[Rfam]
RNA: ASpks TB sRNA
Organism: Streptomyces sulfonofaciens
RNA sequence: UUUGAUGGAGCCGAGCCAUAGGGGUCGGUCGGUGGGUCGGUUCUUGCCGUAGGUGGCGAGGAGUGCUUGUGCUUC
Numbered sequence: 001u002u003u004g005a006u007g008g009a010g011c012c013g014a015g016c017c018a019u020a021g022g023g024g025u026c027g028g029u030c031g032g033u034g035g036g037u038c039g040g041u042u043c044u045u046g047c048c049g050u051a052g053g054u055g056g057c058g059a060g061g062a063g064u065g066c067u068u069g070u071g072c073u074u075c
Stems, first nucleotide, its partner, number of pairs: 015025003032070002038065002043060003047056003